[Rfam]
RNA: RgsA sRNA
Nucleotides: 198
Base pairs, nucleotide, nucleotide: 039169040168042166043165088125089124090123091122095120096119098117100115101114102113127150128149129148130147131146132145133144134142175198176197177196178195180193181192182191
Number, partner (000 for none) and nucleotide at each position: 001000c002000a003000g004000c005000a006000g007000g008000g009000a010000c011000g012000g013000g014000g015000g016000u017000a018000u019000u020000c021000c022000a023000a024000a025000u026000c027000u028000g029000u030000u031000u032000a033000a034000a035000a036000a037000a038000u039169g040168a041000g042166c043165g044000a045000a046000a047000c048000c049000a050000a051000u052000c053000u054000g055000g056000a057000c058000g059000u060000u061000c062000g063000g064000g065000a066000a067000u068000c069000u070000u071000c072000g073000c074000c075000a076000a077000u078000a079000c080000u081000u082000c083000a084000a085000g086000g087000u088125a089124c090123u091122g092000g093000u094000g095120c096119g097000c098117g099000g100115u101114a102113u103000c104000u105000c106000c107000c108000c109000c110000c111000a112000a113102g114101u115100g116000c117098c118000c119096c120095g121000c122091c123090a124089g125088u126000c127150a128149a129148g130147g131146u132145a133144c134142c135000g136000u137000g138000g139000a140000u141000c142134g143000c144133g145132u146131a147130c148129c149128u150127u151000u152000g153000u154000u155000u156000u157000a158000c159000u160000c161000c162000u163000a164000a165043u166042g167000g168040u169039c170000u171000u172000a173000a174000c175198c176197c177196g178195g179000a180193u181192u182191c183000a184000u185000c186000c187000c188000c189000c190000a191182g192181a193180a194000c195178c196177c197176g198175g